[Rfam]
Record summary: Rfam assigns this 90-nucleotide RNA sequence from Mesorhizobium zhangyense to the family "Alphaproteobacterial ar15". Rfam links the family to the GO term protein binding. The family is grouped with related families in Rfam's "suhB sRNA clan". A reference for the family is Caswell et al. (2012), "Identification of two small regulatory RNAs linked to virulence in Brucella abortus 2308", Mol Microbiol. The source organism's lineage runs through Bacteria, Pseudomonadati, Hyphomicrobiales, Phyllobacteriaceae and Mesorhizobium.
RNA sequence: GCGUCGGACGUCUCCUCCCAUUCGUCUGGCGCGUUCCCCUCUGGAGGUUUUAAACCUUCAUGCUUGGCCGGGCUUAACAGUCCGGCCUUU
Numbered sequence: 001g002c003g004u005c006g007g008a009c010g011u012c013u014c015c016u017c018c019c020a021u022u023c024g025u026c027u028g029g030c031g032c033g034u035u036c037c038c039c040u041c042u043g044g045a046g047g048u049u050u051u052a053a054a055c056c057u058u059c060a061u062g063c064u065u066g067g068c069c070g071g072g073c074u075u076a077a078c079a080g081u082c083c084g085g086c087c088u089u090u
Stems, first nucleotide, its partner, number of pairs: 001032005007026003042060007068085006